A member of the RNA family "Small nucleolar RNA SNORD24" from Biomphalaria glabrata, 73 nucleotides long.
The organism belongs to Biomphalaria, within Eukaryota.
The base pairs follow the family's consensus structure, which was predicted with PFOLD.
A reference for the family is Qu et al. (1995), "U24, a novel intron-encoded small nucleolar RNA with two 12 nt long, phylogenetically conserved complementarities to 28S rRNA", Nucleic Acids Res.
Rfam 15.1 lists 2,843 matches to the family in 1,188 species.
RNA sequence: AAGCAGUGAUGUUAUAAAUAUUUGCUAUCUGAAACAGUGAUGGAAAAAAUCUACCACCUAGAUCUCUGAGCUU
Numbered sequence: 001a002a003g004c005a006g007u008g009a010u011g012u013u014a015u016a017a018a019u020a021u022u023u024g025c026u027a028u029c030u031g032a033a034a035c036a037g038u039g040a041u042g043g044a045a046a047a048a049a050u051c052u053a054c055c056a057c058c059u060a061g062a063u064c065u066c067u068g069a070g071c072u073u
Stems, first nucleotide, its partner, number of pairs: 001073004